[Rfam]
RNA sequence: ACGCAAUGAUGAGUGAAGUAUAGUCUGACCUGGUAUUGCCUUGGCUUCUGUUUUGGCUCUGACCAGGGCAUGAUCACUUAAUCUUCUCUCUGAGCUA
Dot-bracket structure: (.((.................................(((..............)))....................................))).
Numbered sequence: 001a002c003g004c005a006a007u008g009a010u011g012a013g014u015g016a017a018g019u020a021u022a023g024u025c026u027g028a029c030c031u032g033g034u035a036u037u038g039c040c041u042u043g044g045c046u047u048c049u050g051u052u053u054u055g056g057c058u059c060u061g062a063c064c065a066g067g068g069c070a071u072g073a074u075c076a077c078u079u080a081a082u083c084u085u086c087u088c089u090c091u092g093a094g095c096u097a
Stems, first nucleotide, its partner, number of pairs: 001096001003095002038057003
A member of the RNA family "Z30 small nucleolar RNA" from Monodelphis domestica, 97 nucleotides long. The source organism's lineage runs through Eukaryota, Eumetazoa, Tetrapoda, Didelphinae and Monodelphis. It is annotated as a C/D-box small nucleolar RNA. Gene Ontology terms of the family: nucleolus and RNA processing.